[Rfam]
RNA sequence: CAGUGAACAGGUAGCUGUAAAGCCUGGGGCGGUAGCGUA
Numbered sequence: 001c002a003g004u005g006a007a008c009a010g011g012u013a014g015c016u017g018u019a020a021a022g023c024c025u026g027g028g029g030c031g032g033u034a035g036c037g038u039a
Stems, first nucleotide, its partner, number of pairs: 008026005
This 39-nucleotide sequence from Jejuibacter calystegiae belongs to the Rfam family "JUMPstart RNA". The match comes from Rfam's covariance-model search (53 bits).